RNA sequence: GCGCGAGGACGACCUCCCCAUCAAGGCACCGUUCCGGGACGACCCGG
Numbered sequence: 001g002c003g004c005g006a007g008g009a010c011g012a013c014c015u016c017c018c019c020a021u022c023a024a025g026g027c028a029c030c031g032u033u034c035c036g037g038g039a040c041g042a043c044c045c046g047g
Base pairs, nucleotide, nucleotide: 001019003017005016006015007014008013034047035046036045037044038043
Rfam assigns this 47-nucleotide RNA sequence from Pontivivens nitratireducens to the family "Guanidine-II riboswitch aptamer (mini-ykkC)". Pairs were carried over by alignment from the consensus structure, which is taken from published work. Simpler in structure and has fewer highly conserved nucleotide positions than the ykkC-yxkD leader. Despite this each of its two stem-loop structures directly bind free guanidine. Therefore, mini-ykkC RNA motif represents a distinct class of guanidine-sensing RNAs. The match comes from Rfam's covariance-model search (36 bits).